This 68-nucleotide RNA sequence from Nocardia amikacinitolerans belongs to the Rfam family "ASdes TB sRNA". Taxonomically the source falls in Nocardia (Bacteria, Bacillati, Mycobacteriales, Nocardiaceae). The family has 26 seed sequences and 1,192 matches in Rfam 15.1.

RNA sequence: AAAGCGACCGGAUCCACCGCGCGGGUCACCACCAGAUAAUCGCGCAUCACGAUGGCGUGGCGAUUCUC
Numbered sequence: 001a002a003a004g005c006g007a008c009c010g011g012a013u014c015c016a017c018c019g020c021g022c023g024g025g026u027c028a029c030c031a032c033c034a035g036a037u038a039a040u041c042g043c044g045c046a047u048c049a050c051g052a053u054g055g056c057g058u059g060g061c062g063a064u065u066c067u068c
Stems, first nucleotide, its partner, number of pairs: 005062002008059001011030001013028001016026003035056001037054002040052003044048001